[Rfam]
RNA sequence: AAAAUGACGAUGAGAGGAAAUAGUACAGUCCCGUUUUCCGUUUUAGAGAGCUGCCGGUUGGUGAAAGGCAGUAACGGAAUAGGAUUGGAACUCUUCCUCGAGUAGCCGACCGAAAUUGAUUAAAGUAGGCUCGGACGGAGCUUCCGCCGUUAAAAGGAAGGCGAUAUCGGAUAACUCGAAGAUCGUUGUUCGAUGUUAGCAGUUCGAUCCAUGAAGGUCAUAUUUCGGAUCGAACCACGAAUCACGAACCACGAAUAUCGAUUAACUCCCGUAUCUGCAGAGAAGACGGCUGUUUGCUGUCAACUUGAGUGGUACCGCGAACUAACCCUUCGUCUCAAUC
Numbered sequence: 001a002a003a004a005u006g007a008c009g010a011u012g013a014g015a016g017g018a019a020a021u022a023g024u025a026c027a028g029u030c031c032c033g034u035u036u037u038c039c040g041u042u043u044u045a046g047a048g049a050g051c052u053g054c055c056g057g058u059u060g061g062u063g064a065a066a067g068g069c070a071g072u073a074a075c076g077g078a079a080u081a082g083g084a085u086u087g088g089a090a091c092u093c094u095u096c097c098u099c100g101a102g103u104a105g106c107c108g109a110c111c112g113a114a115a116u117u118g119a120u121u122a123a124a125g126u127a128g129g130c131u132c133g134g135a136c137g138g139a140g141c142u143u144c145c146g147c148c149g150u151u152a153a154a155a156g157g158a159a160g161g162c163g164a165u166a167u168c169g170g171a172u173a174a175c176u177c178g179a180a181g182a183u184c185g186u187u188g189u190u191c192g193a194u195g196u197u198a199g200c201a202g203u204u205c206g207a208u209c210c211a212u213g214a215a216g217g218u219c220a221u222a223u224u225u226c227g228g229a230u231c232g233a234a235c236c237a238c239g240a241a242u243c244a245c246g247a248a249c250c251a252c253g254a255a256u257a258u259c260g261a262u263u264a265a266c267u268c269c270c271g272u273a274u275c276u277g278c279a280g281a282g283a284a285g286a287c288g289g290c291u292g293u294u295u296g297c298u299g300u301c302a303a304c305u306u307g308a309g310u311g312g313u314a315c316c317g318c319g320a321a322c323u324a325a326c327c328c329u330u331c332g333u334c335u336c337a338a339u340c
Stems, first nucleotide, its partner, number of pairs: 007103002015098004026087006039076003050072006106134004111129001136149003285301006306337004317333005